[Rfam]
RNA: U7 small nuclear RNA
RNA sequence: AAAUGUACUCUUUUAGUAUUUGUCCAGUAGGUUUUCUUUAAAAGGAAGCCCAU
Numbered sequence: 001a002a003a004u005g006u007a008c009u010c011u012u013u014u015a016g017u018a019u020u021u022g023u024c025c026a027g028u029a030g031g032u033u034u035u036c037u038u039u040a041a042a043a044g045g046a047a048g049c050c051c052a053u
Base pairs, nucleotide, nucleotide: 030050031049032048033047034046035045036044037043